[Rfam]
Small nucleolar RNA SNORA4: a 136-nucleotide sequence from Sapajus apella. The family has 7 seed sequences and 290 matches in Rfam 15.1. From the family's description: ACA4 is a member of the H/ACA class of snoRNA that guide the sites of modification of uridines to pseudouridines. Its Rfam clan is "SNORA4 clan". The source organism's lineage runs through Eukaryota, Opisthokonta, Mammalia, Primates and Sapajus.
RNA sequence: CUACUGAAAGUUAAUUUCUUUGCGAGGAAGGCUUCCUAAAUAACCUUUACCAAUUUGGGCUAUUUGGGAGAGUAAGGAAAGACCAUAUUUCACAGUGGGCUAUACCAAUAGUUCACUCUAUUUUGUGGACUACAUU
Number, nucleotide and partner (000 for none) at each position: 001c000002u000003a000004c067005u066006g065007a064008a063009a000010g000011u000012u062013a061014a000015u059016u058017u057018c000019u000020u000021u000022g055023c000024g000025a000026g051027g050028a000029a048030g045031g044032c000033u042034u000035c000036c000037u000038a000039a000040a000041u000042a033043a000044c031045c030046u000047u000048u029049a000050c027051c026052a000053a000054u000055u022056u000057g017058g016059g015060c000061u013062a012063u008064u007065u006066g005067g004068g000069a000070g000071a000072g000073u000074a000075a000076g000077g000078a000079a000080a131081g130082a000083c128084c127085a126086u125087a124088u000089u000090u000091c000092a000093c000094a117095g116096u115097g114098g113099g112100c111101u110102a109103u108104a000105c000106c000107a000108a103109u102110a101111g100112u099113u098114c097115a096116c095117u094118c000119u000120a000121u000122u000123u000124u087125g086126u085127g084128g083129a000130c081131u080132a000133c000134a000135u000136u000